Shown here is a 182-nucleotide sequence from Lactiplantibacillus plantarum, a member of the family "Lysine riboswitch aptamer". Rfam's curators put it in the seed alignment.
[Rfam]
RNA sequence: AUCGAAAGAAGAGGAUGCGGUUAACAAUAGUAGCCGGCUGGAAGUGGGUCACCACUUAUGAAGGUCAGUGAACGGGGCAACCGCCGAAAUCGAUGGAUCAGUGACCGAUUCAUCCGUUGGGCCUUGGUUGAAUAAAUCAUGGACUGUCGCAGCUAGAAUAGUUGCGGGGCGCUAUCGACGAU
Numbered sequence: 001a002u003c004g005a006a007a008g009a010a011g012a013g014g015a016u017g018c019g020g021u022u023a024a025c026a027a028u029a030g031u032a033g034c035c036g037g038c039u040g041g042a043a044g045u046g047g048g049u050c051a052c053c054a055c056u057u058a059u060g061a062a063g064g065u066c067a068g069u070g071a072a073c074g075g076g077g078c079a080a081c082c083g084c085c086g087a088a089a090u091c092g093a094u095g096g097a098u099c100a101g102u103g104a105c106c107g108a109u110u111c112a113u114c115c116g117u118u119g120g121g122c123c124u125u126g127g128u129u130g131a132a133u134a135a136a137u138c139a140u141g142g143a144c145u146g147u148c149g150c151a152g153c154u155a156g157a158a159u160a161g162u163u164g165c166g167g168g169g170c171g172c173u174a175u176c177g178a179c180g181a182u
Stems, first nucleotide, its partner, number of pairs: 008175001010173002017084006025076001033069002036066004088118003092114008119145002122142002125139005147167007